This 95-nucleotide RNA sequence from Papaver nudicaule belongs to the Rfam family "MIR535 microRNA precursor family". The source organism's lineage runs through Eukaryota, Tracheophyta, Euphyllophyta, Magnoliopsida and Papaver.
RNA sequence: AAGAUUGAAUGACACCAAGAGAGAGCACUCUUGUACACAACCAUGUCCUUUUUAUGAAUGCAAACAAAAGUGCUCUCUCUCGUUGUCAAGCAAAG
Numbered sequence: 001a002a003g004a005u006u007g008a009a010u011g012a013c014a015c016c017a018a019g020a021g022a023g024a025g026c027a028c029u030c031u032u033g034u035a036c037a038c039a040a041c042c043a044u045g046u047c048c049u050u051u052u053u054a055u056g057a058a059u060g061c062a063a064a065c066a067a068a069a070g071u072g073c074u075c076u077c078u079c080u081c082g083u084u085g086u087c088a089a090g091c092a093a094a095g
Stems, first nucleotide, its partner, number of pairs: 010088005016082001020078002023075001025073005031067004